RNA sequence: AUAAUGAUACUUCCGUCCAGCCACAGUCUAAAGCAAUGGGGGCGGCUUUGCGAAAACCGCAUCGGGGUGAGAUUCCCAUGA
Numbered sequence: 001a002u003a004a005u006g007a008u009a010c011u012u013c014c015g016u017c018c019a020g021c022c023a024c025a026g027u028c029u030a031a032a033g034c035a036a037u038g039g040g041g042g043c044g045g046c047u048u049u050g051c052g053a054a055a056a057c058c059g060c061a062u063c064g065g066g067g068u069g070a071g072a073u074u075c076c077c078a079u080g081a
Stems, first nucleotide, its partner, number of pairs: 012078001013045006046064001050060003065077003

Rfam assigns this 81-nucleotide sequence to the family "pemK RNA".
The sequence is in the family's curated seed alignment.